The record is an 86-nucleotide sequence from Lotus japonicus, which matches "Small nucleolar RNA R160" in Rfam. The sequence is in the family's curated seed alignment. Taxonomically the source falls in Lotus (Eukaryota, Viridiplantae, Gunneridae, fabids). About the family: snoR160 is a C/D box small nucleolar RNA, which acts as a methylation guide for 25S ribosomal RNA in plants. snoR160 has been alternatively named snoZ270 in rice. The family's RNA type in Rfam is C/D-box small nucleolar RNA. The base pairs follow the family's consensus structure.
[Rfam]
RNA sequence: AGCAAAAUGAUGAAGUUGUUUUCUGUCUGAAUCUGGUGUGGAUUACAUAACAUAAACAUACAGGUCUUCAAAGUUCUCUGAUUGCU
Numbered sequence: 001a002g003c004a005a006a007a008u009g010a011u012g013a014a015g016u017u018g019u020u021u022u023c024u025g026u027c028u029g030a031a032u033c034u035g036g037u038g039u040g041g042a043u044u045a046c047a048u049a050a051c052a053u054a055a056a057c058a059u060a061c062a063g064g065u066c067u068u069c070a071a072a073g074u075u076c077u078c079u080g081a082u083u084g085c086u
Stems, first nucleotide, its partner, number of pairs: 001086005